[Rfam]
RNA sequence: CUUGAGUGAGCCGAGGUACAGGGGCCGGCCCUCCGCCCGGUCCUGGCCGUACGUCGCCAGCAGUGCCUGGGCCUC
Numbered sequence: 001c002u003u004g005a006g007u008g009a010g011c012c013g014a015g016g017u018a019c020a021g022g023g024g025c026c027g028g029c030c031c032u033c034c035g036c037c038c039g040g041u042c043c044u045g046g047c048c049g050u051a052c053g054u055c056g057c058c059a060g061c062a063g064u065g066c067c068u069g070g071g072c073c074u075c
Stems, first nucleotide, its partner, number of pairs: 015025001017023001031071003038065002043060003047056001049054001

A member of the RNA family "ASpks TB sRNA" from Streptomyces lividans, 75 nucleotides long. The family has 77 seed sequences and 9,052 matches in Rfam 15.1. The family's consensus secondary structure is taken from published work.